[Rfam]
RNA: FMN riboswitch aptamer (RFN element)
Organism: Arthrobacter subterraneus
RNA sequence: AACGUGCUCCGGGGUCGGUGUAAUUCCGAACCGGCGGUUAUAGUCCGCGACCCGCGCGCUGCCCCUGCGGCAGCAAGCGGUUGAACCGGUGAAAUUCCGGUACCGACAGUUAAAGUCUGGAUGGGAGAAGCGCGUG
Number, nucleotide and partner (000 for none) at each position: 001a000002a000003c134004g133005u132006g131007c130008u129009c000010c127011g000012g000013g000014g000015u000016c028017g027018g026019u000020g000021u000022a000023a000024u000025u000026c018027c017028g016029a000030a116031c115032c105033g104034g048035c047036g046037g045038u000039u000040a000041u000042a000043g103044u102045c037046c036047g035048c034049g000050a000051c000052c080053c079054g078055c077056g000057c000058g000059c000060u000061g000062c000063c000064c000065c000066u000067g000068c000069g000070g000071c000072a000073g000074c000075a000076a000077g055078c054079g053080g052081u000082u000083g000084a000085a101086c100087c099088g098089g097090u000091g000092a000093a000094a000095u000096u000097c089098c088099g087100g086101u085102a044103c043104c033105g032106a000107c119108a118109g117110u000111u000112a000113a000114a000115g031116u030117c109118u108119g107120g000121a000122u000123g000124g000125g000126a000127g010128a000129a008130g007131c006132g005133c004134g003135u000136g000